Rfam assigns this 78-nucleotide RNA from Edaphosphingomonas laterariae to the family "Makes More Granules Regulator RNA (mmgR)".
The organism belongs to Edaphosphingomonas, within Bacteria.
The family's RNA type in Rfam is small RNA.
The family is grouped with related families in Rfam's "suhB sRNA clan".
The match comes from Rfam's covariance-model search (49 bits).

RNA sequence: AGAUCGGGCCUUUCAGGCAUCCUCUCCUAAAACUUUCAAGGGUCGGCCCCAACGGGCCGGCCCCUUUUUUUGUCUCGA
Numbered sequence: 001a002g003a004u005c006g007g008g009c010c011u012u013u014c015a016g017g018c019a020u021c022c023u024c025u026c027c028u029a030a031a032a033c034u035u036u037c038a039a040g041g042g043u044c045g046g047c048c049c050c051a052a053c054g055g056g057c058c059g060g061c062c063c064c065u066u067u068u069u070u071u072g073u074c075u076c077g078a
Stems, first nucleotide, its partner, number of pairs: 008018004040063009
Dot-bracket structure: .......((((...)))).....................(((((((((......)))))))))...............